[Rfam]
RNA sequence: AGCACAAGACAGGGGAGCACGCGCGAGCGUGCUGAGAGUGCGGAUGAGCCGCAGACCCUCCGAACCUGCUCCGGUUAACACCGGCGAAGGGAGUCACACCGAUGGUGCU
Numbered sequence: 001a002g003c004a005c006a007a008g009a010c011a012g013g014g015g016a017g018c019a020c021g022c023g024c025g026a027g028c029g030u031g032c033u034g035a036g037a038g039u040g041c042g043g044a045u046g047a048g049c050c051g052c053a054g055a056c057c058c059u060c061c062g063a064a065c066c067u068g069c070u071c072c073g074g075u076u077a078a079c080a081c082c083g084g085c086g087a088a089g090g091g092a093g094u095c096a097c098a099c100c101g102a103u104g105g106u107g108c109u
Stems, first nucleotide, its partner, number of pairs: 008095003011059004017032005039053005065090003071084004